[Rfam]
RNA sequence: CUCCCCGAAAUGCCUUUAGGGACAGCCUUAUACAAAACUGUCGGAGGUAAAGCACUGGAUGGGCUAGGGGGUUUCAUCGCCUACCAAACCCAAUCAAACUCUGAAUGCCGGCAGUCAACGUGUGGGAGUGAGACUGCGUGCGACAAGGUUCGUAGUCGAGAGGGAAACAGCCCAGACCGUCAGCUAAGGUCCCGAAAUACCGCUUGAGUGUGAAAUGAAGUGUGGGUACCUGGACAGCCAGGAGGUUGGCUUAGAAGCAGCCAUUCCUUGAAAGAGUGCGUAAUAGCUCACUGGUCGAGUACGCAUGCGCAGAUAAUGUAUCGGGGCUAAGCGGUAUACCGAAGCUACGGGUCUUGCAUUUUUGGUGCAAGGCGGUAGGGGAGCAUUCCAUGUACUGAUGAAGGAAUAUCCGGGAGGAGUUCUGGAGGGGAUGGAAGAGAGAAU
Numbered sequence: 001c002u003c004c005c006c007g008a009a010a011u012g013c014c015u016u017u018a019g020g021g022a023c024a025g026c027c028u029u030a031u032a033c034a035a036a037a038c039u040g041u042c043g044g045a046g047g048u049a050a051a052g053c054a055c056u057g058g059a060u061g062g063g064c065u066a067g068g069g070g071g072u073u074u075c076a077u078c079g080c081c082u083a084c085c086a087a088a089c090c091c092a093a094u095c096a097a098a099c100u101c102u103g104a105a106u107g108c109c110g111g112c113a114g115u116c117a118a119c120g121u122g123u124g125g126g127a128g129u130g131a132g133a134c135u136g137c138g139u140g141c142g143a144c145a146a147g148g149u150u151c152g153u154a155g156u157c158g159a160g161a162g163g164g165a166a167a168c169a170g171c172c173c174a175g176a177c178c179g180u181c182a183g184c185u186a187a188g189g190u191c192c193c194g195a196a197a198u199a200c201c202g203c204u205u206g207a208g209u210g211u212g213a214a215a216u217g218a219a220g221u222g223u224g225g226g227u228a229c230c231u232g233g234a235c236a237g238c239c240a241g242g243a244g245g246u247u248g249g250c251u252u253a254g255a256a257g258c259a260g261c262c263a264u265u266c267c268u269u270g271a272a273a274g275a276g277u278g279c280g281u282a283a284u285a286g287c288u289c290a291c292u293g294g295u296c297g298a299g300u301a302c303g304c305a306u307g308c309g310c311a312g313a314u315a316a317u318g319u320a321u322c323g324g325g326g327c328u329a330a331g332c333g334g335u336a337u338a339c340c341g342a343a344g345c346u347a348c349g350g351g352u353c354u355u356g357c358a359u360u361u362u363u364g365g366u367g368c369a370a371g372g373c374g375g376u377a378g379g380g381g382a383g384c385a386u387u388c389c390a391u392g393u394a395c396u397g398a399u400g401a402a403g404g405a406a407u408a409u410c411c412g413g414g415a416g417g418a419g420u421u422c423u424g425g426a427g428g429g430g431a432u433g434g435a436a437g438a439g440a441g442a443a444u
Base pairs, nucleotide, nucleotide: 001383002382003381004380005379006378011024012023014021015020026128027126028125029124030123031122032121033120037115038114039113040112041111042110043109044108050102051100052099056096057095058094060092061091062090063089067085068084069082070081071080072079132157133156134155135154136153137152138151140149141148162173163172164171177350178349179348180347182346183345184344188340189339190338197337198336199335200334201333202332203331216311217310220308221307222306223305224304226302227301228300229299237295238294239293240292241291243268244267245266248262249261250260269273274289278287279286351373352372353371354370355369356368357367358366384439386436387435388434389433390432391431395428396427403423404422405421406420407419409418410417411416
This 444-nucleotide part of an RNA from Treponema pallidum belongs to the Rfam family "Bacterial large subunit ribosomal RNA". The sequence is in the family's curated seed alignment. Lineage of the source: Bacteria > Spirochaetia > Treponema > Treponema pallidum > Treponema pallidum subsp. pallidum. For this family Rfam cites "Crystal structure of the ribosome at 5.5 A resolution" (Yusupov et al., Science, 2001).